[Rfam]
chrB-b RNA: a 48-nucleotide sequence. Rfam classes the family as a cis-regulatory element. Rfam's curators put it in the seed alignment.
Nucleotides: 048
Base pairs, nucleotide, nucleotide: 002020003019004018005017006016010048011047012046013045014044025038026037027036028035029034
Number, partner (000 for none) and nucleotide at each position: 001000u002020g003019g004018g005017g006016a007000c008000a009000c010048g011047c012046a013045g014044a015000c016006u017005c018004c019003c020002c021000u022000u023000u024000a025038g026037a027036c028035g029034g030000c031000u032000u033000g034029c035028c036027g037026u038025c039000c040000a041000a042000g043000c044014u045013c046012u047011g048010c